Record summary: Shown here is a 121-nucleotide sequence from Chrysochloris asiatica, a member of the family "Small nucleolar RNA SNORA61". Rfam links the family to the GO terms RNA processing and nucleolus. The family's RNA type in Rfam is H/ACA-box small nucleolar RNA. Rfam's curators write: ACA61 is a member of the H/ACA class of snoRNA that guide the sites of modification of uridines to pseudouridines. The family has 25 seed sequences and 881 matches in Rfam 15.1. The organism belongs to Chrysochloris, within Eukaryota. The base pairs follow the family's consensus structure, which was predicted with PFOLD.

[Rfam]
RNA sequence: AUCCUCCAGUUCCCUUUCCCAUCAGAUCUAAAUACUAAUCUGGAUGGUUGUAAAAGGAUUAAAAAUAACAUUGAAUUUGACUUCAGUGCUUUUGUAGUACAUAGGCUAGUUUCAAACAAGA
Numbered sequence: 001a002u003c004c005u006c007c008a009g010u011u012c013c014c015u016u017u018c019c020c021a022u023c024a025g026a027u028c029u030a031a032a033u034a035c036u037a038a039u040c041u042g043g044a045u046g047g048u049u050g051u052a053a054a055a056g057g058a059u060u061a062a063a064a065a066u067a068a069c070a071u072u073g074a075a076u077u078u079g080a081c082u083u084c085a086g087u088g089c090u091u092u093u094g095u096a097g098u099a100c101a102u103a104g105g106c107u108a109g110u111u112u113c114a115a116a117c118a119a120g121a
Base pairs, nucleotide, nucleotide: 005058006057007056019047020046021045022044023043025040026039027038077109078108079107081105082104083103